[Rfam]
RNA sequence: CGGCGGCGCGCCCGCCGGCCCGAUCCCGGUACCUCACACGGCCGGGACGG
Numbered sequence: 001c002g003g004c005g006g007c008g009c010g011c012c013c014g015c016c017g018g019c020c021c022g023a024u025c026c027c028g029g030u031a032c033c034u035c036a037c038a039c040g041g042c043c044g045g046g047a048c049g050g
Stems, first nucleotide, its partner, number of pairs: 001017006020050003024047007
RNA: L17-Actino-Proteobacteria ribosomal protein leader
Organism: Spongiactinospora gelatinilytica